[Rfam]
mir-548 microRNA precursor family: an 84-nucleotide sequence from Chlorocebus sabaeus. Pairs were carried over by alignment from the consensus structure, which was predicted with WAR. Rfam links the family to the GO terms RISC complex and miRNA-mediated post-transcriptional gene silencing.
RNA sequence: UAUUAGGUUGGCGCAAAAGUAAUUGCGAUUUUUGUCAUUAAAAGUAAUGGCAAAAACCACAAUUGCUUUUGCGUCAACCUAAUA
Dot-bracket structure: (((((((((((((((((((((((((.(.((((((((((((....)))))))))))).).)))))))))))))))))))))))))